[Rfam]
RNA sequence: UGGGAUGAAAUUACCAUUUGGAUAUGCGAUUUCACGCUGAUUUCAUCUCAUG
Numbered sequence: 001u002g003g004g005a006u007g008a009a010a011u012u013a014c015c016a017u018u019u020g021g022a023u024a025u026g027c028g029a030u031u032u033c034a035c036g037c038u039g040a041u042u043u044c045a046u047c048u049c050a051u052g
Base pairs, nucleotide, nucleotide: 001050002049003048004047005046006045007044008043009042010041011040012039013038015036017034018029019028020027